The record is a 46-nucleotide RNA from Patiria miniata, which matches "Histone 3' UTR stem-loop" in Rfam. Lineage of the source: Eukaryota > Deuterostomia > Asterozoa > Asteroidea > Patiria. The mRNAs of metazoan histone genes lack a poly-A tail. 3' end processing occurs at a site between a highly conserved stem-loop (modelled by this family) and a purine rich region around 20 nts downstream (the histone downstream element, or HDE). Rfam 15.1 lists 44,596 matches to the family in 976 species.
[Rfam]
RNA sequence: CCAACGGUCUUUCUCAAGACCACCACAUCUUCUCAAAAGAGAUAUC
Numbered sequence: 001c002c003a004a005c006g007g008u009c010u011u012u013c014u015c016a017a018g019a020c021c022a023c024c025a026c027a028u029c030u031u032c033u034c035a036a037a038a039g040a041g042a043u044a045u046c
Base pairs, nucleotide, nucleotide: 006021007020008019009018010017011016